[Rfam]
This 59-nucleotide RNA sequence belongs to the Rfam family "GP20-b RNA". By type it is a cis-regulatory element. Pairs were carried over by alignment from the consensus structure, which is taken from published work.
RNA sequence: CGACUAGACACGUCGUAAAAAGUGCAAGCAUCGUGAGAGCGACCUCGUAUAAAAGCGUA
Numbered sequence: 001c002g003a004c005u006a007g008a009c010a011c012g013u014c015g016u017a018a019a020a021a022g023u024g025c026a027a028g029c030a031u032c033g034u035g036a037g038a039g040c041g042a043c044c045u046c047g048u049a050u051a052a053a054a055g056c057g058u059a
Stems, first nucleotide, its partner, number of pairs: 001015004009024003034047004